[Rfam]
RNA sequence: UAUAUGAAACGAGAGACUUACUCGUGUCUCUUCGUUGAAUAAAAAAAGAGGAAGAGUGAAAUGAGGAGAUAUCGUUUCUGUUGCCCUAAUUAUGUUUGGCGAUUUGAUUGUUGCUCCUGUACAG
Numbered sequence: 001u002a003u004a005u006g007a008a009a010c011g012a013g014a015g016a017c018u019u020a021c022u023c024g025u026g027u028c029u030c031u032u033c034g035u036u037g038a039a040u041a042a043a044a045a046a047a048g049a050g051g052a053a054g055a056g057u058g059a060a061a062u063g064a065g066g067a068g069a070u071a072u073c074g075u076u077u078c079u080g081u082u083g084c085c086c087u088a089a090u091u092a093u094g095u096u097u098g099g100c101g102a103u104u105u106g107a108u109u110g111u112u113g114c115u116c117c118u119g120u121a122c123a124g
Stems, first nucleotide, its partner, number of pairs: 008036004013030005063120001065117004071108004080103006089095001
The record is a 124-nucleotide sequence from Coptis chinensis, which matches "Small nucleolar RNA snoR111" in Rfam. The family has 6 seed sequences and 533 matches in Rfam 15.1. A search with the family's covariance model found it, with a score of 75 bits. NCBI's taxonomy places the organism under Eukaryota, Euphyllophyta, Ranunculaceae, Coptidoideae, Coptis.